[Rfam]
Record summary: 7SK RNA: a 328-nucleotide RNA sequence from Galbula dea. Rfam describes the family as follows. 7SK was discovered as an abundant small nuclear RNA in the mid-70s but a possible function has only recently been suggested. Two independent studies have found that 7SK RNA binds the CDK9/cyclin T complex (known as elongation factor P-TEFb). P-TEFb activates transcription by phosphorylating the C-terminal domain of RNA polymerase II. This process is negatively regulated by the 7SK RNP. The secondary structure of 7SK RNA shown here was proposed by Wasserman and Steitz on the basis of chemical modification and enzymatic cleavage experiments. This family contains a number of annotated pseudogenes and 7SK derived repeats.

RNA sequence: UGAAGUGAGGGUGAUCUGUCUGCAACAUCAGUCACCCUAUUGAUUGCCAGGGUUGAUUUGGCUGAUCUGGCUGGCUAGGCUGGUGUCCCCUUCCUCCCUCACUGCUCCAUGUGUCCCUCCCAAAGCCACACACUCAGUCGAAGAGGAUGACCUCUCCUGGCUAGGGAUGGUACCGUUUAUUGAGCAAGGGUAUACGGUAGCUGUGCUGCCCUGCUAGAACCUACAAGCAGUCUCAAUGUACAUUUGUAGGAGAACGUAGGGUAGUCAAGCUUCCAAGACUGUAGACACAUCCAAGUAAGGCACUGCGUGGGGCAGCCUGCCAUUGUUU
Numbered sequence: 001u002g003a004a005g006u007g008a009g010g011g012u013g014a015u016c017u018g019u020c021u022g023c024a025a026c027a028u029c030a031g032u033c034a035c036c037c038u039a040u041u042g043a044u045u046g047c048c049a050g051g052g053u054u055g056a057u058u059u060g061g062c063u064g065a066u067c068u069g070g071c072u073g074g075c076u077a078g079g080c081u082g083g084u085g086u087c088c089c090c091u092u093c094c095u096c097c098c099u100c101a102c103u104g105c106u107c108c109a110u111g112u113g114u115c116c117c118u119c120c121c122a123a124a125g126c127c128a129c130a131c132a133c134u135c136a137g138u139c140g141a142a143g144a145g146g147a148u149g150a151c152c153u154c155u156c157c158u159g160g161c162u163a164g165g166g167a168u169g170g171u172a173c174c175g176u177u178u179a180u181u182g183a184g185c186a187a188g189g190g191u192a193u194a195c196g197g198u199a200g201c202u203g204u205g206c207u208g209c210c211c212u213g214c215u216a217g218a219a220c221c222u223a224c225a226a227g228c229a230g231u232c233u234c235a236a237u238g239u240a241c242a243u244u245u246g247u248a249g250g251a252g253a254a255c256g257u258a259g260g261g262u263a264g265u266c267a268a269g270c271u272u273c274c275a276a277g278a279c280u281g282u283a284g285a286c287a288c289a290u291c292c293a294a295g296u297a298a299g300g301c302a303c304u305g306c307g308u309g310g311g312g313c314a315g316c317c318u319g320c321c322a323u324u325g326u327u328u
Stems, first nucleotide, its partner, number of pairs: 002107002005102007013093002018090001025086009035074002037070003042067004046062003114170002117166003120137001123134001125133001138160003145156002200270003206264002209261006221252002224249001227247004293328003297323001299321003303315004
The organism belongs to Galbula, within Eukaryota. A search with the family's covariance model found it, with a score of 262 bits.